The record is a 148-nucleotide sequence from Psychrobacillus soli, which matches "c-di-AMP riboswitch aptamer (ydaO/yuaA leader)" in Rfam.

RNA sequence: UUUCGAAAAUCGCUGAAUCCUUUUGGAGUGGGGAAACCAUUAUCCGUGGUUGUUAAAAUCACAAGGGGUGAAUCCUAUAUUGUAGGUAGGGCUACUCUUUUAGCCCGAAUCCGACAGCUAACCCCGUAAGCGUUAAGAGAGAGGGAGG
Numbered sequence: 001u002u003u004c005g006a007a008a009a010u011c012g013c014u015g016a017a018u019c020c021u022u023u024u025g026g027a028g029u030g031g032g033g034a035a036a037c038c039a040u041u042a043u044c045c046g047u048g049g050u051u052g053u054u055a056a057a058a059u060c061a062c063a064a065g066g067g068g069u070g071a072a073u074c075c076u077a078u079a080u081u082g083u084a085g086g087u088a089g090g091g092c093u094a095c096u097c098u099u100u101u102a103g104c105c106c107g108a109a110u111c112c113g114a115c116a117g118c119u120a121a122c123c124c125c126g127u128a129a130g131c132g133u134u135a136a137g138a139g140a141g142a143g144g145g146a147g148g
Base pairs, nucleotide, nucleotide: 011132012131013130014129018027019026020025028127029126030125031124032123033122038065066112067111068110074086075085076084077083089106090105091104092103
The pairing is the family consensus, mapped onto this sequence. The match comes from Rfam's covariance-model search (101 bits). The source organism's lineage runs through Bacteria, Bacillati, Bacilli, Bacillaceae and Psychrobacillus.